Bacterial large subunit ribosomal RNA: a 375-nucleotide part of an RNA from Chlorochromatium aggregatum. The source organism's lineage runs through Bacteria and Chlorochromatium. The sequence is in the family's curated seed alignment.
[Rfam]
RNA sequence: GUUAAAGGGGGUGAAAAGCCCCCUCGCCGAAAGCGCAAGGUUUUCUACGCAACGUUCAUCGGCGUAGAGUGAGUCGGCCCCUAAGGCGAGGCAGAGAUGCGUAGCUGAUGGGAAACAGGUUAAUAUUCCUGUACCGACGUGUAGUGCGAUGUGGGGACGGAGAAGGUUAGCUCAGCCAACAGUUGGAAUUGUUGGUUCAAGCCUGUAGUCGUACUGGGUAGGUAAAUCCGCCCGGAAUAGAUGAGGGGUGAUAACGAGGCAGCAUGCUGCCGAAGUGAGUGAUACCCUGCUUCCAGGAAAAGCCACUAAGCUUCAGCUACACGCGACCGUACCGCAAACCGACACUGGUGCGCGAGAUGAGUAUUCUUAGGCGCU
Numbered sequence: 001g002u003u004a005a006a007g008g009g010g011g012u013g014a015a016a017a018g019c020c021c022c023c024u025c026g027c028c029g030a031a032a033g034c035g036c037a038a039g040g041u042u043u044u045c046u047a048c049g050c051a052a053c054g055u056u057c058a059u060c061g062g063c064g065u066a067g068a069g070u071g072a073g074u075c076g077g078c079c080c081c082u083a084a085g086g087c088g089a090g091g092c093a094g095a096g097a098u099g100c101g102u103a104g105c106u107g108a109u110g111g112g113a114a115a116c117a118g119g120u121u122a123a124u125a126u127u128c129c130u131g132u133a134c135c136g137a138c139g140u141g142u143a144g145u146g147c148g149a150u151g152u153g154g155g156g157a158c159g160g161a162g163a164a165g166g167u168u169a170g171c172u173c174a175g176c177c178a179a180c181a182g183u184u185g186g187a188a189u190u191g192u193u194g195g196u197u198c199a200a201g202c203c204u205g206u207a208g209u210c211g212u213a214c215u216g217g218g219u220a221g222g223u224a225a226a227u228c229c230g231c232c233c234g235g236a237a238u239a240g241a242u243g244a245g246g247g248g249u250g251a252u253a254a255c256g257a258g259g260c261a262g263c264a265u266g267c268u269g270c271c272g273a274a275g276u277g278a279g280u281g282a283u284a285c286c287c288u289g290c291u292u293c294c295a296g297g298a299a300a301a302g303c304c305a306c307u308a309a310g311c312u313u314c315a316g317c318u319a320c321a322c323g324c325g326a327c328c329g330u331a332c333c334g335c336a337a338a339c340c341g342a343c344a345c346u347g348g349u350g351c352g353c354g355a356g357a358u359g360a361g362u363a364u365u366c367u368u369a370g371g372c373g374c375u
Base pairs, nucleotide, nucleotide: 006024007023008022009021010020011019025373026372027371028370033353034352035351036350039333040332044068045067046066047065048064049063053061054060075329076328077327080111081110085106086105087104089102091100092099093098115132116131117130118129119128135325136324138323139322140321141320142319143318144317145316146311147310151306152305153304154303159293160292161291162290165286166285167284170280171279172278173277174276175196176195177194178193179192180191197254201249202248203247204246208242209241210240214235215234216233217232218231219230221229222228258271259270260269261268262267339348340347355367356366357365